[Rfam]
RNA sequence: GUGGGAUAUGGCGAUGUGGCGCCCAAGACCUAUCCGGGCAUGUUCGUGGGUGCCCUCUGUGCUCUAGCCGGUGUGCUGACCAUCGCCCUGCCCGUGCCCGUCAUUGUCAGCAAU
Numbered sequence: 001g002u003g004g005g006a007u008a009u010g011g012c013g014a015u016g017u018g019g020c021g022c023c024c025a026a027g028a029c030c031u032a033u034c035c036g037g038g039c040a041u042g043u044u045c046g047u048g049g050g051u052g053c054c055c056u057c058u059g060u061g062c063u064c065u066a067g068c069c070g071g072u073g074u075g076c077u078g079a080c081c082a083u084c085g086c087c088c089u090g091c092c093c094g095u096g097c098c099c100g101u102c103a104u105u106g107u108c109a110g111c112a113a114u
Stems, first nucleotide, its partner, number of pairs: 001114002004111001008107004013102004018097001021095002037077004049063003
Shown here is a 114-nucleotide sequence from Drosophila melanogaster, a member of the family "Potassium channel RNA editing signal". It scores 95 bits against the family's covariance model. Taxonomically the source falls in Sophophora (Eukaryota, Pancrustacea, Schizophora, Drosophilini). By type it is a cis-regulatory element. The family has 85 seed sequences and 14,095 matches in Rfam 15.1.